Shown here is a 338-nucleotide sequence from Podila minutissima, a member of the family "RNase MRP".
By type it is a ribozyme.
RNA sequence: GAACCACACGCAGAAUCGCACAUUGAAGCAUCACAACUCUACGAUGAGGCUGGUCUUUCCGGUCAGACCUCAACCGAAACAUCAUUGCAAUGCUUUAGGGAAAGUCCUCGGACCUCACGGCAGAAAGUGCCGCCAAUAAUCCACUGGUAUUACUUUGUCCGCAAAAGAUUGAUCGUUGUGUUUGGGCCGAGAUCCUUUCUUUCAUUGAGAGAAAAGUAGCUCCUUAAUGAUCUGAUUUUGUGGCUCAGUGUUUGUCAUGGUUACAGUUAUGCGAUUGCGGUUGAUCCUCUUUACUGAGGAUUGAUUGUAACUCAACGGGGCUCACUCGCGCUAUGGAG
Numbered sequence: 001g002a003a004c005c006a007c008a009c010g011c012a013g014a015a016u017c018g019c020a021c022a023u024u025g026a027a028g029c030a031u032c033a034c035a036a037c038u039c040u041a042c043g044a045u046g047a048g049g050c051u052g053g054u055c056u057u058u059c060c061g062g063u064c065a066g067a068c069c070u071c072a073a074c075c076g077a078a079a080c081a082u083c084a085u086u087g088c089a090a091u092g093c094u095u096u097a098g099g100g101a102a103a104g105u106c107c108u109c110g111g112a113c114c115u116c117a118c119g120g121c122a123g124a125a126a127g128u129g130c131c132g133c134c135a136a137u138a139a140u141c142c143a144c145u146g147g148u149a150u151u152a153c154u155u156u157g158u159c160c161g162c163a164a165a166a167g168a169u170u171g172a173u174c175g176u177u178g179u180g181u182u183u184g185g186g187c188c189g190a191g192a193u194c195c196u197u198u199c200u201u202u203c204a205u206u207g208a209g210a211g212a213a214a215a216g217u218a219g220c221u222c223c224u225u226a227a228u229g230a231u232c233u234g235a236u237u238u239u240g241u242g243g244c245u246c247a248g249u250g251u252u253u254g255u256c257a258u259g260g261u262u263a264c265a266g267u268u269a270u271g272c273g274a275u276u277g278c279g280g281u282u283g284a285u286c287c288u289c290u291u292u293a294c295u296g297a298g299g300a301u302u303g304a305u306u307g308u309a310a311c312u313c314a315a316c317g318g319g320g321c322u323c324a325c326u327c328g329c330g331c332u333a334u335g336g337a338g
Base pairs, nucleotide, nucleotide: 004336005335006334008332009330010329011328014276015275016274017273018272019271023098024097025096026095027094028093029092047082049080103322104321106320107319108318109317119131120130121129122128164177165176167174168173181247186244187243188242191237192236193235194234202230203229204228205227216223278307279306280305281304282303283302284301285300286299287298288297289296
RNase MRP is an enzymatically active ribonucleoprotein with two distinct roles in eukaryotes. In mitochondria it plays a direct role in the initiation of mitochondrial DNA replication. Lineage of the source: Eukaryota > Opisthokonta > Fungi > Mortierellales > Podila.